The family of this 100-nucleotide sequence is "RT-9 RNA". It is one of the family's seed sequences.
[Rfam]
RNA sequence: GUCCGGCACGGUCACGGCUUUGCUGGCGAGUCCUUGUUAUACUUCAAGGGAGAGGUAAUCCUUCGCCAUGUCUUGAGACGGCGUAAAAACAGUGAUAGAG
Numbered sequence: 001g002u003c004c005g006g007c008a009c010g011g012u013c014a015c016g017g018c019u020u021u022g023c024u025g026g027c028g029a030g031u032c033c034u035u036g037u038u039a040u041a042c043u044u045c046a047a048g049g050g051a052g053a054g055g056u057a058a059u060c061c062u063u064c065g066c067c068a069u070g071u072c073u074u075g076a077g078a079c080g081g082c083g084u085a086a087a088a089a090c091a092g093u094g095a096u097a098g099a100g
Base pairs, nucleotide, nucleotide: 003026004025005024006023007022008021010019011018012017064083065082066081067080